[Rfam]
RNA: SAM riboswitch aptamer (S box leader)
Organism: Thermoactinomyces mirandus
RNA sequence: UUCUUAUCCAGAGUGGUGGAGGGACUGGCCCGAUGAAACCCGGCAACCUCGCUUGAUCAUGAGCGGAUGGUGCCAAUUCCUGCAGGAGAAUUUCCUGAGAGAUGAGAA
Numbered sequence: 001u002u003c004u005u006a007u008c009c010a011g012a013g014u015g016g017u018g019g020a021g022g023g024a025c026u027g028g029c030c031c032g033a034u035g036a037a038a039c040c041c042g043g044c045a046a047c048c049u050c051g052c053u054u055g056a057u058c059a060u061g062a063g064c065g066g067a068u069g070g071u072g073c074c075a076a077u078u079c080c081u082g083c084a085g086g087a088g089a090a091u092u093u094c095c096u097g098a099g100a101g102a103u104g105a106g107a108a
Stems, first nucleotide, its partner, number of pairs: 001108008013041001015040003021031003025082001027080002042074004047070002049066004078100001083097006